A member of the RNA family "Ribosomal protein L10 leader" from Leptolyngbya sp. Heron Island J, 131 nucleotides long. By type it is a cis-regulatory leader. It scores 52 bits against the family's covariance model. The family's consensus secondary structure was predicted with CMfinder. About the family: This family is a putative r-protein leader autoregulatory structure found in B. subtilis and other low-GC Gram-positive bacteria.
RNA sequence: CAUAACUAAAUAAGCAUUCGAAGACAGCAGGUGCAUUUUGCUUAAUAGCCUGCCGAGAUGCAGAGAAAGGGUGUGAGUAGCGCUCAUCUUUGGGUCUUGGCGGAUAGCUGAGGCCCUUUUGAUUUUGAAGU
Numbered sequence: 001c002a003u004a005a006c007u008a009a010a011u012a013a014g015c016a017u018u019c020g021a022a023g024a025c026a027g028c029a030g031g032u033g034c035a036u037u038u039u040g041c042u043u044a045a046u047a048g049c050c051u052g053c054c055g056a057g058a059u060g061c062a063g064a065g066a067a068a069g070g071g072u073g074u075g076a077g078u079a080g081c082g083c084u085c086a087u088c089u090u091u092g093g094g095u096c097u098u099g100g101c102g103g104a105u106a107g108c109u110g111a112g113g114c115c116c117u118u119u120u121g122a123u124u125u126u127g128a129a130g131u
Stems, first nucleotide, its partner, number of pairs: 027053006033041003092116010
Dot-bracket structure: ..........................(((((((((...)))......))))))......................................((((((((((.....))))))))))...............